A member of the RNA family "TPP riboswitch aptamer (THI element)" from Martelella sp. AD-3, 95 nucleotides long. The base pairs follow the family's consensus structure, which is taken from published work. NCBI's taxonomy places the organism under Bacteria, Pseudomonadota, Alphaproteobacteria, Aurantimonadaceae, Martelella. A search with the family's covariance model found it, with a score of 72 bits.
RNA sequence: CAAGAGAGACAGGGGCGCCCGAUCAAACGGGCUGAGAAGCACCCUUGGAACCUGAUCCGGAUCAUACCGGCGGAGGGAGUCGCUCGGGCCUUUCC
Numbered sequence: 001c002a003a004g005a006g007a008g009a010c011a012g013g014g015g016c017g018c019c020c021g022a023u024c025a026a027a028c029g030g031g032c033u034g035a036g037a038a039g040c041a042c043c044c045u046u047g048g049a050a051c052c053u054g055a056u057c058c059g060g061a062u063c064a065u066a067c068c069g070g071c072g073g074a075g076g077g078a079g080u081c082g083c084u085c086g087g088g089c090c091u092u093u094c095c
Stems, first nucleotide, its partner, number of pairs: 006083001008081003011045004016039001017032005051076003057070004